The family of this 98-nucleotide sequence from Aquarana catesbeiana is "mir-239 microRNA precursor family".

RNA sequence: CAAUUCUUGCACUGGGCCCAGGAAUUUAACUGAUAGGUCUGGGGCAAUGAGUGCCUCAGACCUAUCAGUUAAACUCCUGGGCCCAGUGCAAGAAUUAA
Numbered sequence: 001c002a003a004u005u006c007u008u009g010c011a012c013u014g015g016g017c018c019c020a021g022g023a024a025u026u027u028a029a030c031u032g033a034u035a036g037g038u039c040u041g042g043g044g045c046a047a048u049g050a051g052u053g054c055c056u057c058a059g060a061c062c063u064a065u066c067a068g069u070u071a072a073a074c075u076c077c078u079g080g081g082c083c084c085a086g087u088g089c090a091a092g093a094a095u096u097a098a
Stems, first nucleotide, its partner, number of pairs: 003095010015083009025073003029069018